RNA: tRNA
Organism: Syntrophomonadaceae bacterium
RNA sequence: GGAGAGAUGGCCGAGAAGGUCGAAGGCGGUCGCCUGCUAAGCGAUUAUACGGGCCAAAACCCGUAUCGCGGGUUCGAAUCCCGCUCUCUCCG
Number, nucleotide and partner (000 for none) at each position: 001g091002g090003a089004g088005a087006g086007a085008u000009g000010g027011c026012c025013g000014a000015g000016a000017a000018g000019g000020u000021c000022g000023a000024a000025g012026g011027c010028g000029g045030u044031c043032g042033c041034c000035u000036g000037c000038u000039a000040a000041g033042c032043g031044a030045u029046u000047a000048u000049a000050c000051g000052g000053g000054c000055c000056a000057a000058a000059a000060c000061c000062c000063g000064u000065a000066u000067c000068g084069c083070g082071g081072g080073u000074u000075c000076g000077a000078a000079u000080c072081c071082c070083g069084c068085u007086c006087u005088c004089u003090c002091c001092g000